This 372-nucleotide RNA sequence from Sanguibacter sp. HDW7 belongs to the Rfam family "Bacterial RNase P class A".
A search with the family's covariance model found it, with a score of 317 bits.
By type it is a ribozyme.
The base pairs follow the family's consensus structure, which is taken from published work.
RNA sequence: CGAGCCGGCCGGGCGGCCGCGUGACGCCUUCGGGCGUCCCGAGGAACGUCCGGGCUCCAUAGAGCAGGGUGGUGGGUAACGCCCACCCGGGGUGACCCGCGGGACAGUGCCACAGAGAACAGACCGCCCGUCCUCGGACGGGUAAGGGUGAAACGGUGGUGUAAGAGACCACCAGCGUGCCGGGUGACCGGCGCGGCUAGGUAAACCCCACCCGGAGCAAGACCAGACAGGAUGUGUUCGAGGGCUGCUCGCCCGAGCAUCCGGGUAGGUCGCUCGAGCCGUGCGGCAACGCACGGCCUAGAUGGAUGGCCGUCACCUGCACGAGGGCGACCUCGGCAGGAACAGAACCCGGCGUACAGGCCGGCUCGUCUG
Numbered sequence: 001c002g003a004g005c006c007g008g009c010c011g012g013g014c015g016g017c018c019g020c021g022u023g024a025c026g027c028c029u030u031c032g033g034g035c036g037u038c039c040c041g042a043g044g045a046a047c048g049u050c051c052g053g054g055c056u057c058c059a060u061a062g063a064g065c066a067g068g069g070u071g072g073u074g075g076g077u078a079a080c081g082c083c084c085a086c087c088c089g090g091g092g093u094g095a096c097c098c099g100c101g102g103g104a105c106a107g108u109g110c111c112a113c114a115g116a117g118a119a120c121a122g123a124c125c126g127c128c129c130g131u132c133c134u135c136g137g138a139c140g141g142g143u144a145a146g147g148g149u150g151a152a153a154c155g156g157u158g159g160u161g162u163a164a165g166a167g168a169c170c171a172c173c174a175g176c177g178u179g180c181c182g183g184g185u186g187a188c189c190g191g192c193g194c195g196g197c198u199a200g201g202u203a204a205a206c207c208c209c210a211c212c213c214g215g216a217g218c219a220a221g222a223c224c225a226g227a228c229a230g231g232a233u234g235u236g237u238u239c240g241a242g243g244g245c246u247g248c249u250c251g252c253c254c255g256a257g258c259a260u261c262c263g264g265g266u267a268g269g270u271c272g273c274u275c276g277a278g279c280c281g282u283g284c285g286g287c288a289a290c291g292c293a294c295g296g297c298c299u300a301g302a303u304g305g306a307u308g309g310c311c312g313u314c315a316c317c318u319g320c321a322c323g324a325g326g327g328c329g330a331c332c333u334c335g336g337c338a339g340g341a342a343c344a345g346a347a348c349c350c351g352g353c354g355u356a357c358a359g360g361c362c363g364g365c366u367c368g369u370c371u372g
Base pairs, nucleotide, nucleotide: 001368002367003366004365005364006363007362008361009360010359011357012314013313014312015311016310017309018308020041021040023038024037025036026035027034028033046355047354048353050352051351052350053349054348055217056216057215058214062250063249064248065247067213068212069211070210071209072086073085074084075083076082087101088099089098090097091096102208103207107206108205109202110201111200124147125146126143127142128141129140130139131138132137155173156172157171158170159169160168175197176195177194178193179192180191181190182189183188221271222270223269224268230262231261232260233259234258235257242254243253244252245251278297279296280295281294282293283292284291285290